Description
pemK RNA: a 66-nucleotide sequence from Lachnospiraceae bacterium oral taxon 500. It is annotated as a cis-regulatory element. The sequence is in the family's curated seed alignment. The organism belongs to Lachnospiraceae bacterium oral taxon 500, within Bacteria.
RNA sequence: AUAAUGAUACUUCAACAGUUUAUGCCGGCUCGUCUGGAAUAAGAGGCGGUGGUGAGAGUCCAAUGU
Dot-bracket structure: ...........(((........))(((.(((...........))).)))(((.......))))...